[Rfam]
Shown here is a 98-nucleotide RNA from Lupinus albus, a member of the family "mir-166 microRNA precursor family". Pairs were carried over by alignment from the consensus structure, which was predicted with PFOLD.
RNA sequence: GUUGAGGGGAAUGUUGGCUGGCUCGAGGCUUUAAACAAAUCAAUGUUCAUAGCCUUGAAGAACAAAAAGGCUUCGGACCAGGCUUCAUUCCCCUCAAA
Numbered sequence: 001g002u003u004g005a006g007g008g009g010a011a012u013g014u015u016g017g018c019u020g021g022c023u024c025g026a027g028g029c030u031u032u033a034a035a036c037a038a039a040u041c042a043a044u045g046u047u048c049a050u051a052g053c054c055u056u057g058a059a060g061a062a063c064a065a066a067a068a069g070g071c072u073u074c075g076g077a078c079c080a081g082g083c084u085u086c087a088u089u090c091c092c093c094u095c096a097a098a
Stems, first nucleotide, its partner, number of pairs: 002097012016083001018081004024075003